[Rfam]
RNA sequence: GGAGGGGAAACGGUCCCGGUGGGCCGGCCGGGCUUCAAACCCGGUGGGUGGCGCUCAGCGCUGCCGGGUGGGUUCGACUCCCAUUCCCCUCC
Numbered sequence: 001g002g003a004g005g006g007g008a009a010a011c012g013g014u015c016c017c018g019g020u021g022g023g024c025c026g027g028c029c030g031g032g033c034u035u036c037a038a039a040c041c042c043g044g045u046g047g048g049u050g051g052c053g054c055u056c057a058g059c060g061c062u063g064c065c066g067g068g069u070g071g072g073u074u075c076g077a078c079u080c081c082c083a084u085u086c087c088c089c090u091c092c
Stems, first nucleotide, its partner, number of pairs: 001092009011026006027045006047065005069083004
Shown here is a 92-nucleotide sequence from Pseudaquabacterium pictum, a member of the family "Selenocysteine transfer RNA". On this family, see Mizutani and Goto, FEBS Lett 2000: "Eukaryotic selenocysteine tRNA has the 9/4 secondary structure". Clan: tRNA clan. NCBI's taxonomy places the organism under Bacteria, Pseudomonadati, Burkholderiales, Sphaerotilaceae, Pseudaquabacterium. The base pairs follow the family's consensus structure, which is taken from published work.